Rfam assigns this 127-nucleotide RNA sequence to the family "atpB RNA". It is one of the family's seed sequences. The base pairs follow the family's consensus structure, which is taken from published work.
RNA sequence: CUGUUACAGCUUCGCUGAUGUGCGACGGAGUCCGUAGCUGUGACAGAGAGUUUGAGACGUCCAUCGCACCGUACGACGCCGACAAUCGUACGGCCCGAACACGGGAGAGAACGCUGAGCGUUACAAC
Numbered sequence: 001c002u003g004u005u006a007c008a009g010c011u012u013c014g015c016u017g018a019u020g021u022g023c024g025a026c027g028g029a030g031u032c033c034g035u036a037g038c039u040g041u042g043a044c045a046g047a048g049a050g051u052u053u054g055a056g057a058c059g060u061c062c063a064u065c066g067c068a069c070c071g072u073a074c075g076a077c078g079c080c081g082a083c084a085a086u087c088g089u090a091c092g093g094c095c096c097g098a099a100c101a102c103g104g105g106a107g108a109g110a111a112c113g114c115u116g117a118g119c120g121u122u123a124c125a126a127c
Stems, first nucleotide, its partner, number of pairs: 001046011069093008

Rfam classes the family as a cis-regulatory element.